The record is a 109-nucleotide sequence from Streptomyces sp. ADI95-17, which matches "Streptomyces RNA 4115" in Rfam. Pairs were carried over by alignment from the consensus structure.

[Rfam]
RNA sequence: GCGUGGGUCGGCCCACUGCACAGGACCCAGUGGGCUGGGGGACACUGCCGCCUCAUUCCCCGCAGGCGGCGGACCGGUCCGGGAGGUGAACGACACCUCCCGGACUGUG
Numbered sequence: 001g002c003g004u005g006g007g008u009c010g011g012c013c014c015a016c017u018g019c020a021c022a023g024g025a026c027c028c029a030g031u032g033g034g035c036u037g038g039g040g041g042a043c044a045c046u047g048c049c050g051c052c053u054c055a056u057u058c059c060c061c062g063c064a065g066g067c068g069g070c071g072g073a074c075c076g077g078u079c080c081g082g083g084a085g086g087u088g089a090a091c092g093a094c095a096c097c098u099c100c101c102g103g104a105c106u107g108u109g
Stems, first nucleotide, its partner, number of pairs: 001108002006075003009037010038043001045072009076106013
From the family's description: Identified by deep sequencing of transcriptome at the end of exponential growth phase. Sequencing size consistent with notrthern blot size. The match comes from Rfam's covariance-model search (115 bits). It is annotated as a small RNA.